[Rfam]
RNA: mir-190 microRNA precursor family
Organism: Diabrotica balteata
RNA sequence: ACUUGCAUUAGAAAUGUUUGAUUUUAGAUCAUUUAUUUCAUUAAAUGAUCUAAAAUCAAACAUUUCUAAUGCAAGU
Numbered sequence: 001a002c003u004u005g006c007a008u009u010a011g012a013a014a015u016g017u018u019u020g021a022u023u024u025u026a027g028a029u030c031a032u033u034u035a036u037u038u039c040a041u042u043a044a045a046u047g048a049u050c051u052a053a054a055a056u057c058a059a060a061c062a063u064u065u066c067u068a069a070u071g072c073a074a075g076u
Base pairs, nucleotide, nucleotide: 005072006071007070008069009068011065012064014063015062016061017060018059019058020057021056022055023054024053025052027050028049029048030047031046
Dot-bracket structure: ....(((((.((.((((((((((((.(((((..............))))).))))))))))))))..)))))....